[Rfam]
RNA: S10-Clostridia ribosomal protein leader
Organism: Vallitalea guaymasensis
RNA sequence: AGAUAGCUUAGAAGUGUGAGGUUGCCGCAUAAGCGGGUAAUUCACAUGGAGCGAAUGUCAUGUUCAAGAAACUGGCGGCAA
Numbered sequence: 001a002g003a004u005a006g007c008u009u010a011g012a013a014g015u016g017u018g019a020g021g022u023u024g025c026c027g028c029a030u031a032a033g034c035g036g037g038u039a040a041u042u043c044a045c046a047u048g049g050a051g052c053g054a055a056u057g058u059c060a061u062g063u064u065c066a067a068g069a070a071a072c073u074g075g076c077g078g079c080a081a
Stems, first nucleotide, its partner, number of pairs: 014047003018043003025036004056080004062076001064075003
Dot-bracket structure: .............(((.(((....((((....))))....))).)))........((((..(.(((......)))))))).